[Rfam]
RNA: Guanidine-II riboswitch aptamer (mini-ykkC)
Organism: Nyctibius bracteatus
RNA sequence: UCCCCGGGACGGCCCGGGGCUCCCCCCUCAGCACCCACCCGGGACGGCCCGG
Numbered sequence: 001u002c003c004c005c006g007g008g009a010c011g012g013c014c015c016g017g018g019g020c021u022c023c024c025c026c027c028u029c030a031g032c033a034c035c036c037a038c039c040c041g042g043g044a045c046g047g048c049c050c051g052g
Stems, first nucleotide, its partner, number of pairs: 002019007039052005